[Rfam]
RNA sequence: GAGGAAAAGAAGAAGCACCCGCUUCUCACCUGAUUGACGCUUAGGCAGUUAGCAGGUUUUACGUGAACUUUUAUGAUUAAACGUAAUGUGUGGGUGUUUUCAUCCGCACUUUUUUAUUUGC
Numbered sequence: 001g002a003g004g005a006a007a008a009g010a011a012g013a014a015g016c017a018c019c020c021g022c023u024u025c026u027c028a029c030c031u032g033a034u035u036g037a038c039g040c041u042u043a044g045g046c047a048g049u050u051a052g053c054a055g056g057u058u059u060u061a062c063g064u065g066a067a068c069u070u071u072u073a074u075g076a077u078u079a080a081a082c083g084u085a086a087u088g089u090g091u092g093g094g095u096g097u098u099u100u101c102a103u104c105c106g107c108a109c110u111u112u113u114u115u116a117u118u119u120g121c
Base pairs, nucleotide, nucleotide: 011026012025013024014023015022016021028057029056030055036050037049038048039046040045089108090107091106092105093104094103095102096101

This 121-nucleotide RNA from Cytobacillus horneckiae belongs to the Rfam family "Ribosomal protein L20 leader". It scores 84 bits against the family's covariance model. By type it is a cis-regulatory leader. The source organism's lineage runs through Bacteria, Bacillota, Bacilli, Caryophanales and Cytobacillus. For this family Rfam cites "Diverse mechanisms for regulating ribosomal protein synthesis in Escherichia coli" (Zengel and Lindahl, Prog Nucleic Acid Res Mol Biol, 1994).